[Rfam]
The family of this 103-nucleotide RNA sequence from Psychromicrobium silvestre is "Glycine riboswitch aptamer". A search with the family's covariance model found it, with a score of 34 bits. The base pairs follow the family's consensus structure.

RNA sequence: CAACUCUGGAAAGUAGUUCCGCCCAAACCAGGACGGUGCUCACCGACGGUGCAAGCGAGGAAAUCUUCGCGGAAUCUCUCAGGUCCAAUACAGAGCGGGGAGG
Numbered sequence: 001c002a003a004c005u006c007u008g009g010a011a012a013g014u015a016g017u018u019c020c021g022c023c024c025a026a027a028c029c030a031g032g033a034c035g036g037u038g039c040u041c042a043c044c045g046a047c048g049g050u051g052c053a054a055g056c057g058a059g060g061a062a063a064u065c066u067u068c069g070c071g072g073a074a075u076c077u078c079u080c081a082g083g084u085c086c087a088a089u090a091c092a093g094a095g096c097g098g099g100g101a102g103g
Stems, first nucleotide, its partner, number of pairs: 001098001004095005015040003042084003045080002049078001051076001056071002